The family of this 102-nucleotide RNA from Enterococcus phoeniculicola is "TPP riboswitch aptamer (THI element)". From the family's description: Vitamin B(1) in its active form thiamin pyrophosphate (TPP) is an essential coenzyme that is synthesised by coupling of pyrimidine and thiazole moieties in bacteria. On this family, see Thore et al., Science 2006: "Structure of the eukaryotic thiamine pyrophosphate riboswitch with its regulatory ligand".
[Rfam]
RNA sequence: ACUAUCACAAAGGGGAGCCUUCUUUGGCUGAGAAUGAGGAAACUCUAAACCCUUCGUACCUGUAUCGAUCAUUCGAGCGUAGGAAUUGUGAUGGAGUAAUGA
Numbered sequence: 001a002c003u004a005u006c007a008c009a010a011a012g013g014g015g016a017g018c019c020u021u022c023u024u025u026g027g028c029u030g031a032g033a034a035u036g037a038g039g040a041a042a043c044u045c046u047a048a049a050c051c052c053u054u055c056g057u058a059c060c061u062g063u064a065u066c067g068a069u070c071a072u073u074c075g076a077g078c079g080u081a082g083g084a085a086u087u088g089u090g091a092u093g094g095a096g097u098a099a100u101g102a
Stems, first nucleotide, its partner, number of pairs: 006090005011053004017028003036045003059083004065076003